The family of this 357-nucleotide RNA from Macellibacteroides fermentans is "Bacterial RNase P class A". A search with the family's covariance model found it, with a score of 248 bits.
RNA sequence: GCAGCAGACCGGUCUGUCGCUCACAUUCUAUGUGGGAGGAACGUCCGGGCAACGCAGAGCACCAUACUUCCUAACGGGAAGCUGUUUGUGAGAGCAGAGUAAUGUAACAGAAAAUAACCGCCGGCUUGCCGGUAAGGGUGAAAAGGUGAGGUAAGAGCUCACCGGGUUGCGUAGCAAUACGCGAUGCCGUACGUCUUAUGGGUUGUAAGGUCAUGUAUACCGGCGCAGUAGGAUUGCUCGUCCGAUGCCGGGGGGUAGACCGCUAGAGCCAGUUGGCGACAACUGGUCGAGAUAAAUGGCAGACGCCUUUGUUUUCGGACAAAGGUACAGAACCCGGCUUAUAGGUCUGCUGCAAUU
Numbered sequence: 001g002c003a004g005c006a007g008a009c010c011g012g013u014c015u016g017u018c019g020c021u022c023a024c025a026u027u028c029u030a031u032g033u034g035g036g037a038g039g040a041a042c043g044u045c046c047g048g049g050c051a052a053c054g055c056a057g058a059g060c061a062c063c064a065u066a067c068u069u070c071c072u073a074a075c076g077g078g079a080a081g082c083u084g085u086u087u088g089u090g091a092g093a094g095c096a097g098a099g100u101a102a103u104g105u106a107a108c109a110g111a112a113a114a115u116a117a118c119c120g121c122c123g124g125c126u127u128g129c130c131g132g133u134a135a136g137g138g139u140g141a142a143a144a145g146g147u148g149a150g151g152u153a154a155g156a157g158c159u160c161a162c163c164g165g166g167u168u169g170c171g172u173a174g175c176a177a178u179a180c181g182c183g184a185u186g187c188c189g190u191a192c193g194u195c196u197u198a199u200g201g202g203u204u205g206u207a208a209g210g211u212c213a214u215g216u217a218u219a220c221c222g223g224c225g226c227a228g229u230a231g232g233a234u235u236g237c238u239c240g241u242c243c244g245a246u247g248c249c250g251g252g253g254g255g256u257a258g259a260c261c262g263c264u265a266g267a268g269c270c271a272g273u274u275g276g277c278g279a280c281a282a283c284u285g286g287u288c289g290a291g292a293u294a295a296a297u298g299g300c301a302g303a304c305g306c307c308u309u310u311g312u313u314u315u316c317g318g319a320c321a322a323a324g325g326u327a328c329a330g331a332a333c334c335c336g337g338c339u340u341a342u343a344g345g346u347c348u349g350c351u352g353c354a355a356u357u
Base pairs, nucleotide, nucleotide: 001353002352003351004350005349006348007347008346009345010344011342012304013303014302015301016300017299018298020036021035022034023033024032025031026030041340043338045337046336047335048334049333050205051204052203053202057239058238059237060236062201063200064199065198066197067081068080069079070078071077082097084095085094086093087092098196099195102194103193104192105191106190118137119136120133121132122131123130124129145163146162147161148160149159150158165187166185167184168183169182170181171180172179173178209261210260211259212258220251221250222249223248224247231243232242233241234240268287269286270285271284272283273282274281275280